[Rfam]
RNA: MIR397 microRNA precursor family
Organism: Capsella rubella
RNA sequence: UGAAUGAACAUCAUUGAGUGCAGCGUUGAUGUAACUUCGUUUUUUCUUUUGUUUGCUCCAUCUAUUAUGGAAAUGGAUUAAAGCAAUUUACACCAGCGUUGCGCUCAAUCAUGUUUUUC
Numbered sequence: 001u002g003a004a005u006g007a008a009c010a011u012c013a014u015u016g017a018g019u020g021c022a023g024c025g026u027u028g029a030u031g032u033a034a035c036u037u038c039g040u041u042u043u044u045u046c047u048u049u050u051g052u053u054u055g056c057u058c059c060a061u062c063u064a065u066u067a068u069g070g071a072a073a074u075g076g077a078u079u080a081a082a083g084c085a086a087u088u089u090a091c092a093c094c095a096g097c098g099u100u101g102c103g104c105u106c107a108a109u110c111a112u113g114u115u116u117u118u119c
Stems, first nucleotide, its partner, number of pairs: 006116006013109016030092005